[Rfam]
RNA sequence: GGGUGUCGGAUUCACGGUGAAUUCGUUAGGGUAACUGCGCAGGUCGGGCCGCCGCG
Numbered sequence: 001g002g003g004u005g006u007c008g009g010a011u012u013c014a015c016g017g018u019g020a021a022u023u024c025g026u027u028a029g030g031g032u033a034a035c036u037g038c039g040c041a042g043g044u045c046g047g048g049c050c051g052c053c054g055c056g
Base pairs, nucleotide, nucleotide: 005027007025008024009023010022011021012020038056039055040054042053043052044051
RNA: nhaA-I RNA